[Rfam]
RNA sequence: AGUUGAUGCGCAUGGCGGUUUUCCUCCCAGUGCCGCUGCAUCAGCUGUUCCCCUCUGGAGGUUUAAUUACCUUCACAAUUAUAUGGGCCCGGUUUUUUCCGUGGCCCUUUUUU
Numbered sequence: 001a002g003u004u005g006a007u008g009c010g011c012a013u014g015g016c017g018g019u020u021u022u023c024c025u026c027c028c029a030g031u032g033c034c035g036c037u038g039c040a041u042c043a044g045c046u047g048u049u050c051c052c053c054u055c056u057g058g059a060g061g062u063u064u065a066a067u068u069a070c071c072u073u074c075a076c077a078a079u080u081a082u083a084u085g086g087g088c089c090c091g092g093u094u095u096u097u098u099c100c101g102u103g104g105c106c107c108u109u110u111u112u113u
Stems, first nucleotide, its partner, number of pairs: 001046005007040003015036004056075007085107005090101003
Annotation
A member of the RNA family "Alphaproteobacterial ar15" from Phytoamicus setariae, 113 nucleotides long. The match comes from Rfam's covariance-model search (110 bits). Its family is annotated with protein binding in the Gene Ontology. Lineage of the source: Bacteria > Pseudomonadati > Alphaproteobacteria > Hyphomicrobiales > Phytoamicus. The family has 61 seed sequences and 316 matches in Rfam 15.1.